Source information: The family of this 86-nucleotide RNA from Streptococcus ovuberis is "Bacterial small signal recognition particle RNA".

RNA sequence: AUUCUGGAGCAACAUCUUUGCGUGAAGCGGGUCAGGGGAGGAAUCCAGCAGCCCUAAGCGAAGUAAGGUGUGUGCUCUUUUUGUAU
Numbered sequence: 001a002u003u004c005u006g007g008a009g010c011a012a013c014a015u016c017u018u019u020g021c022g023u024g025a026a027g028c029g030g031g032u033c034a035g036g037g038g039a040g041g042a043a044u045c046c047a048g049c050a051g052c053c054c055u056a057a058g059c060g061a062a063g064u065a066a067g068g069u070g071u072g073u074g075c076u077c078u079u080u081u082u083g084u085a086u
Base pairs, nucleotide, nucleotide: 001086002085006078007077008076009075010072012071013070014069015068016067017066018063019062021060022059023058029054030053031052032051037046038045039044
Source information:
The base pairs follow the family's consensus structure, which is taken from published work. About the family: The signal recognition particle (SRP) is a universally conserved ribonucleoprotein involved in the co-translational targeting of proteins to membranes.